Shown here is a 173-nucleotide sequence from Medicago truncatula, a member of the family "MIR2670 microRNA precursor family". Pairs were carried over by alignment from the consensus structure, which was predicted with RNAalifold. The source organism's lineage runs through Eukaryota, rosids, Fabales, Papilionoideae and Medicago.
RNA sequence: AGUAAGUAGCCGACUUGGGGAAGUGAUCGACGCUUGGGAUAAGUUAUCUGCUUUUUUAACCCCAUAAACUUUUUACUGUGGGUAAAGAGAUUCUUCUUGGGGUAUAAAAAAAAAACAUAUUUAAAUUUAGCUCAAGAGUUGAUGAUGUAUUUUUGCCAAGAAGGCUGCUCACU
Numbered sequence: 001a002g003u004a005a006g007u008a009g010c011c012g013a014c015u016u017g018g019g020g021a022a023g024u025g026a027u028c029g030a031c032g033c034u035u036g037g038g039a040u041a042a043g044u045u046a047u048c049u050g051c052u053u054u055u056u057u058a059a060c061c062c063c064a065u066a067a068a069c070u071u072u073u074u075a076c077u078g079u080g081g082g083u084a085a086a087g088a089g090a091u092u093c094u095u096c097u098u099g100g101g102g103u104a105u106a107a108a109a110a111a112a113a114a115a116c117a118u119a120u121u122u123a124a125a126u127u128u129a130g131c132u133c134a135a136g137a138g139u140u141g142a143u144g145a146u147g148u149a150u151u152u153u154u155g156c157c158a159a160g161a162a163g164g165c166u167g168c169u170c171a172c173u
Stems, first nucleotide, its partner, number of pairs: 001173003005169007014160005020154004026146004030139002034135005040129004045124001046120002049117002052114006059103006069089009